[Rfam]
RNA sequence: ACGACCUUACUUGAACAGGAUCUGUUCUAUAGGCUCGUACCGCUGCAUCCUUUACCAAUAAGGAGGCAAGCACUUCAGUCUGGUUGAUGCAUUCUGACCUCUGGGCCAGAGCGUGAUUAACGGCCUGGAUGAAUCCUGAUGGGAUCAAUCCAAUGGUUGUAGAGGAUCGUUCCUGCCUGGUUCACUUGUGCAGGGCGGCCUAGAGGUUGUCUGACAGACU
Numbered sequence: 001a002c003g004a005c006c007u008u009a010c011u012u013g014a015a016c017a018g019g020a021u022c023u024g025u026u027c028u029a030u031a032g033g034c035u036c037g038u039a040c041c042g043c044u045g046c047a048u049c050c051u052u053u054a055c056c057a058a059u060a061a062g063g064a065g066g067c068a069a070g071c072a073c074u075u076c077a078g079u080c081u082g083g084u085u086g087a088u089g090c091a092u093u094c095u096g097a098c099c100u101c102u103g104g105g106c107c108a109g110a111g112c113g114u115g116a117u118u119a120a121c122g123g124c125c126u127g128g129a130u131g132a133a134u135c136c137u138g139a140u141g142g143g144a145u146c147a148a149u150c151c152a153a154u155g156g157u158u159g160u161a162g163a164g165g166a167u168c169g170u171u172c173c174u175g176c177c178u179g180g181u182u183c184a185c186u187u188g189u190g191c192a193g194g195g196c197g198g199c200c201u202a203g204a205g206g207u208u209g210u211c212u213g214a215c216a217g218a219c220u
Stems, first nucleotide, its partner, number of pairs: 001038002003035001005033003013027006044068003048064005078219005097207011110171004120160006126152005133145004172194005177188001179186002
Background:
A member of the RNA family "Plant small nucleolar RNA U3" from Triticum turgidum, 220 nucleotides long. Its family is annotated with RNA processing and nucleolus in the Gene Ontology. The source organism's lineage runs through Eukaryota, Streptophytina, Embryophyta, Poaceae and Triticum turgidum. The family has 24 seed sequences and 3,759 matches in Rfam 15.1. Rfam's curators write: Small nucleolar RNAs (snoRNAs) are involved in the processing and modification of rRNA in the nucleolus. There are two main classes of snoRNAs: the box C/D class, and the box H/ACA class. U3 snoRNA is a member of the box C/D class. Indeed, the box C/D element is a subset of the six short sequence elements found in all U3 snoRNAs, namely boxes A, A', B, C, C', and D. The U3 snoRNA secondary structure is characterised by a small 5' domain (with boxes A and A'), and a larger 3' domain (with boxes B, C, C', and D), the two domains being linked by a single-stranded hinge. It is annotated as a C/D-box small nucleolar RNA. The literature on the family includes a 1997 paper in Nucleic Acids Res by Zwieb, "The uRNA database".